[Rfam]
RNA: TPP riboswitch aptamer (THI element)
Organism: Lichenibacterium ramalinae
RNA sequence: GCCUUGUCCGAGGGGCGUCCCACGAUCGGGGCUGAGACGGCGACGAGCCGAUCCCUUUGAACCUGAUCCGGGUCAUGCCGGCGAAGGGACGGGAUAGGUCCGCGCG
Numbered sequence: 001g002c003c004u005u006g007u008c009c010g011a012g013g014g015g016c017g018u019c020c021c022a023c024g025a026u027c028g029g030g031g032c033u034g035a036g037a038c039g040g041c042g043a044c045g046a047g048c049c050g051a052u053c054c055c056u057u058u059g060a061a062c063c064u065g066a067u068c069c070g071g072g073u074c075a076u077g078c079c080g081g082c083g084a085a086g087g088g089a090c091g092g093g094a095u096a097g098g099u100c101c102g103c104g105c106g
Stems, first nucleotide, its partner, number of pairs: 007093004011056004016050001017032005039049003062087003068081004